[Rfam]
RNA sequence: AAUGAAAAACGAAUAAAACCUCAUAUAACAUUGGAAAUAUGGUCCAAAAGUUUCUACCCGAUUACCGUAAAAAAUCGGACUAUGAGGGAAAGUGGUUGCAGU
Numbered sequence: 001a002a003u004g005a006a007a008a009a010c011g012a013a014u015a016a017a018a019c020c021u022c023a024u025a026u027a028a029c030a031u032u033g034g035a036a037a038u039a040u041g042g043u044c045c046a047a048a049a050g051u052u053u054c055u056a057c058c059c060g061a062u063u064a065c066c067g068u069a070a071a072a073a074a075u076c077g078g079a080c081u082a083u084g085a086g087g088g089a090a091a092g093u094g095g096u097u098g099c100a101g102u
Stems, first nucleotide, its partner, number of pairs: 019087007031047005058078006
Shown here is a 102-nucleotide RNA from Halalkalibacter nanhaiisediminis, a member of the family "Purine riboswitch aptamer". NCBI's taxonomy places the organism under Bacteria, Bacillota, Bacilli, Bacillaceae, Halalkalibacter. The base pairs follow the family's consensus structure, which is taken from published work. Rfam links the family to the GO term purine nucleobase biosynthetic process.